RNA sequence: AUACUUACUGGCAGGGGAGAUACCAUGACCACGAAGGUAGUUUUCCGAGGAUAAGGCUUAUCCAUUGCACCCUAGAUGUGCUGGCCCUUGCGAUUUCCCCAAAUGUGGGAAACCUGAUUGCAUAAUUUGUAGUAGUAGGGCACUGCAUUCGUGCUUAA
Dot-bracket structure: ..........((((.(((((.((.((..........)).))))))).(((....(((.((((............)))).)))....))).((.(((.((.......)).)))..)).)))).......................(((....)))....
U1 spliceosomal RNA: a 158-nucleotide RNA from Cercocebus atys. The base pairs follow the family's consensus structure, which is taken from published work. NCBI's taxonomy places the organism under Eukaryota, Chordata, Vertebrata, Boreoeutheria, Cercocebus. Rfam describes the family as follows. U1 is a small nuclear RNA (snRNA) component of the spliceosome (involved in pre-mRNA splicing). Its 5' end forms complementary base pairs with the 5' splice junction, thus defining the 5' donor site of an intron.